[Rfam]
RNA sequence: AGAGCGGGCCGGACGGCGGCGCGCCCCAUGGGCGUGAGGAAAGUCCGGGCUUCACAGGGCGGGAUACCUGCUAACGGCAGGCCGGGGCGACCCGAGGGAAAGUGCAACAGAAAGAUACCGCCGCGUUUUGCGGUAAGGAUGGAAAGGCGAGGUAAGAGCUCACCGGGAUGCGGGCAACCGCAUUGCCAUGUAAACCCUAUCCGAAGCAACGCCAACUGGGACAAUGCGGCUGCCCGCCGGGUCCCGAAAGGCGGCUGGAGCCGCGCGGCGACGCGCAGCCAAGAAAGAUCGUCGUCCACGACAGAACCCGGCUUACAGGCUCCCUCUCUAU
Number, nucleotide and partner (000 for none) at each position: 001a327002g326003a325004g324005c000006g322007g321008g320009c319010c318011g316012g296013a295014c294015g293016g292017c291018g290019g000020c036021g035022c034023g033024c032025c031026c030027c000028a000029u000030g026031g025032g024033c023034g022035u021036g020037a000038g000039g000040a000041a314042a313043g312044u000045c311046c310047g309048g308049g307050c206051u205052u204053c203054a000055c000056a000057g235058g234059g233060c232061g000062g202063g201064a200065u199066a198067c081068c080069u079070g078071c077072u000073a000074a000075c000076g000077g071078c070079a069080g068081g067082c096083c094084g093085g092086g091087g000088c000089g000090a000091c086092c085093c084094g083095a000096g082097g197098g196099a000100a000101a000102g195103u194104g191105c190106a189107a000108c000109a000110g000111a000112a000113a000114g000115a000116u000117a000118c138119c137120g134121c133122c132123g131124c130125g129126u000127u000128u000129u125130g124131c123132g122133g121134u120135a000136a000137g119138g118139a000140u000141g000142g000143a000144a000145a000146g164147g163148c000149g161150a160151g159152g000153u000154a000155a000156g000157a000158g000159c151160u150161c149162a000163c147164c146165g186166g184167g000168a183169u182170g181171c180172g179173g178174g000175c000176a000177a000178c173179c172180g171181c170182a169183u168184u166185g000186c165187c000188a000189u106190g105191u104192a000193a000194a103195c102196c098197c097198u066199a065200u064201c063202c062203g053204a052205a051206g050207c000208a000209a000210c253211g252212c251213c250214a000215a000216c000217u000218g000219g244220g243221a242222c241223a000224a000225u000226g000227c239228g238229g237230c236231u000232g060233c059234c058235c057236g230237c229238c228239g227240g000241g222242u221243c220244c219245c000246g000247a000248a000249a000250g213251g212252c211253g210254g000255c000256u000257g000258g000259a000260g279261c278262c000263g276264c275265g274266c273267g272268g000269c000270g000271a000272c267273g266274c265275g264276c263277a000278g261279c260280c000281a000282a000283g000284a000285a000286a000287g000288a000289u000290c018291g017292u016293c015294g014295u013296c012297c000298a000299c000300g000301a000302c000303a000304g000305a000306a000307c049308c048309c047310g046311g045312c043313u042314u041315a000316c011317a000318g010319g009320c008321u007322c006323c000324c004325u003326c002327u001328c000329u000330a000331u000
The record is a 331-nucleotide RNA from Anaerotruncus colihominis, which matches "Bacterial RNase P class A" in Rfam. Gene Ontology terms of the family: dimeric ribonuclease P complex, ribonuclease P activity and tRNA processing. It scores 267 bits against the family's covariance model. Pairs were carried over by alignment from the consensus structure, which is taken from published work. It is annotated as a ribozyme. Taxonomically the source falls in Anaerotruncus (Bacteria, Bacillati, Bacillota, Clostridia).